FMN riboswitch aptamer (RFN element): a 133-nucleotide sequence from [Anoxybacillus] calidus.
Nucleotides: 133
Base pairs, nucleotide, nucleotide: 003131004130005129006128007127008126009125010124017029018028019027031113032112033103034102035065036064037063038062060101061100070077083099084098085097086096087095105116106115107114
Number, partner (000 for none) and nucleotide at each position: 001000a002000u003131c004130u005129a006128u007127c008126u009125u010124c011000g012000g013000g014000g015000c016000a017029g018028g019027g020000u021000g022000a023000a024000a025000u026000u027019c028018c029017c030000g031113a032112c033103c034102g035065g036064c037063g038062g039000u040000g041000a042000u043000g044000a045000a046000a047000c048000a049000a050000u051000g052000g053000u054000u055000u056000c057000u058000a059000a060101g061100c062038c063037c064036g065035c066000g067000a068000g069000c070077c071000g072000u073000a074000a075000a076000g077070g078000c079000a080000g081000g082000a083099u084098c085097u086096g087095g088000u089000g090000c091000a092000a093000a094000u095087c096086c097085a098084g099083a100061g101060c102034c103033g104000a105116c106115a107114g108000u109000a110000u111000a112032g113031u114107c115106u116105g117000g118000a119000u120000g121000g122000g123000a124010g125009a126008a127007g128006a129005u130004g131003g132000a133000g
The RFN element is a highly conserved domain that is found frequently in the 5'-untranslated regions of prokaryotic mRNAs that encode for flavin mononucleotide (FMN) biosynthesis and transport proteins. This element is a metabolite-dependent riboswitch that directly binds FMN in the absence of proteins. In Bacillus subtilis, the riboswitch most likely controls gene expression by causing premature transcription termination within the 5' untranslated region of the ribDEAHT operon and precluding access to the ribosome-binding site of ypaA mRNA.The FMN riboswitch structure, reported in present an FMN-bound six-stem junction, adopts a butterfly-like scaffold, stapled together by opposingly directed but nearly identically folded peripheral domains.
It scores 123 bits against the family's covariance model.